[Rfam]
RNA sequence: AGCACGCUCCUUAGAUCCACCUCUGGGGAGUUCCUCCGCUCCGCUUCUGUCGUGCUCUCUCUCUGGGAGCGGCAGGAUCGGGCCGGAGGCUCCCAGCAGCUUCACGGCUGUACAGUUGGAGGUGCUUGAGUCAUUGGCGUGUGAGAUCAGUCUACCUGCUUACCCAGAAUCCUCUCUGCCCUGAUCCUUCACAGGAGAACACCAGGGCAGAACAGCUGGAGAGCAGACAAA
Numbered sequence: 001a002g003c004a005c006g007c008u009c010c011u012u013a014g015a016u017c018c019a020c021c022u023c024u025g026g027g028g029a030g031u032u033c034c035u036c037c038g039c040u041c042c043g044c045u046u047c048u049g050u051c052g053u054g055c056u057c058u059c060u061c062u063c064u065g066g067g068a069g070c071g072g073c074a075g076g077a078u079c080g081g082g083c084c085g086g087a088g089g090c091u092c093c094c095a096g097c098a099g100c101u102u103c104a105c106g107g108c109u110g111u112a113c114a115g116u117u118g119g120a121g122g123u124g125c126u127u128g129a130g131u132c133a134u135u136g137g138c139g140u141g142u143g144a145g146a147u148c149a150g151u152c153u154a155c156c157u158g159c160u161u162a163c164c165c166a167g168a169a170u171c172c173u174c175u176c177u178g179c180c181c182u183g184a185u186c187c188u189u190c191a192c193a194g195g196a197g198a199a200c201a202c203c204a205g206g207g208c209a210g211a212a213c214a215g216c217u218g219g220a221g222a223g224c225a226g227a228c229a230a231a
Stems, first nucleotide, its partner, number of pairs: 002142007010130005018124008026094005035087003038083004043079001046076004052070001056068004096111006156226005163219001175211008

Shown here is a 231-nucleotide RNA sequence from Cyprinus carpio, a member of the family "Small nucleolar RNA SNORA53". Its family is annotated with nucleolus and RNA processing in the Gene Ontology. A search with the family's covariance model found it, with a score of 102 bits. About the family: The snoRNA ACA53 belongs to the H/ACA family of pseudouridylation guide snoRNAs.